[Rfam]
RNA sequence: GCCAAGUGAAAGACAUGGGUAGUGAGAUGUUAGUUUUGGAUCUUGCAUCUCACUACCUUGUCUUUCAUGCGGCU
Numbered sequence: 001g002c003c004a005a006g007u008g009a010a011a012g013a014c015a016u017g018g019g020u021a022g023u024g025a026g027a028u029g030u031u032a033g034u035u036u037u038g039g040a041u042c043u044u045g046c047a048u049c050u051c052a053c054u055a056c057c058u059u060g061u062c063u064u065u066c067a068u069g070c071g072g073c074u
Stems, first nucleotide, its partner, number of pairs: 008066008017058003021054009
Dot-bracket structure: .......((((((((.(((.(((((((((................))))))))).)))))))))))........
RNA: mir-71 microRNA precursor family
Organism: Zootermopsis nevadensis